[Rfam]
RNA: Selenocysteine transfer RNA
Organism: Paractinoplanes rishiriensis
RNA sequence: GGAGGUGUUCAGGCGGCUGGUGCCCCUCGCAGUCUUCAAAACUGUUGCGGCCCGGCAUCCGGGCCGGGCGGGUUCGAUUCCCGUCCGCCUCC
Numbered sequence: 001g002g003a004g005g006u007g008u009u010c011a012g013g014c015g016g017c018u019g020g021u022g023c024c025c026c027u028c029g030c031a032g033u034c035u036u037c038a039a040a041a042c043u044g045u046u047g048c049g050g051c052c053c054g055g056c057a058u059c060c061g062g063g064c065c066g067g068g069c070g071g072g073u074u075c076g077a078u079u080c081c082c083g084u085c086c087g088c089c090u091c092c
Stems, first nucleotide, its partner, number of pairs: 001092007012027002015024003029045005048066005069083004